[Rfam]
RNA sequence: GUGCCAUGAUGUUAAAACUGUCAACACAUCAUUCUGAAAAAGAAUUGUGUGGAGACUUUUUGAAACUGAGCACC
Numbered sequence: 001g002u003g004c005c006a007u008g009a010u011g012u013u014a015a016a017a018c019u020g021u022c023a024a025c026a027c028a029u030c031a032u033u034c035u036g037a038a039a040a041a042g043a044a045u046u047g048u049g050u051g052g053a054g055a056c057u058u059u060u061u062g063a064a065a066c067u068g069a070g071c072a073c074c
Stems, first nucleotide, its partner, number of pairs: 001073004
A member of the RNA family "Small nucleolar RNA SNORD63" from Menura novaehollandiae, 74 nucleotides long. A reference for the family is Galardi et al. (2002), "Purified box C/D snoRNPs are able to reproduce site-specific 2'-O-methylation of target RNA in vitro", Mol Cell Biol. The match comes from Rfam's covariance-model search (60 bits). The organism belongs to Menura, within Eukaryota. The family has 23 seed sequences and 795 matches in Rfam 15.1. The base pairs follow the family's consensus structure, which was predicted with PFOLD. It is annotated as a C/D-box small nucleolar RNA.